[Rfam]
RNA sequence: GGGGCGGGUCGUGACUGGCGUUCGGGUGGAGCACCACCGGGGAACGGCCCGGGUCGGCUGAUCGUCGGCUCGCAGCCGCGCGCCUGGGUGCCAUCG
Numbered sequence: 001g002g003g004g005c006g007g008g009u010c011g012u013g014a015c016u017g018g019c020g021u022u023c024g025g026g027u028g029g030a031g032c033a034c035c036a037c038c039g040g041g042g043a044a045c046g047g048c049c050c051g052g053g054u055c056g057g058c059u060g061a062u063c064g065u066c067g068g069c070u071c072g073c074a075g076c077c078g079c080g081c082g083c084c085u086g087g088g089u090g091c092c093a094u095c096g
Base pairs, nucleotide, nucleotide: 005051006050007049008048009047010046011045012044015041016040017084018083019082020081021080026037027036028035029034075089076088077087

A member of the RNA family "ZMP/ZTP riboswitch aptamer (pfl RNA motif)" from Saccharopolyspora elongata, 96 nucleotides long. The family's consensus secondary structure is taken from published work.